[Rfam]
RNA sequence: UAGCAGUACGGAGGGGGGCCAUUACACUGUAAGAGACCUGAGGUCUCACAGUGAACCAGUCUCUUUUCCUUCUGCUUC
Numbered sequence: 001u002a003g004c005a006g007u008a009c010g011g012a013g014g015g016g017g018g019c020c021a022u023u024a025c026a027c028u029g030u031a032a033g034a035g036a037c038c039u040g041a042g043g044u045c046u047c048a049c050a051g052u053g054a055a056c057c058a059g060u061c062u063c064u065u066u067u068c069c070u071u072c073u074g075c076u077u078c
Base pairs, nucleotide, nucleotide: 006072008070010068015063016062017061018060019059025053026052027051028050029049030048033047034046035045
RNA: mir-128 microRNA precursor family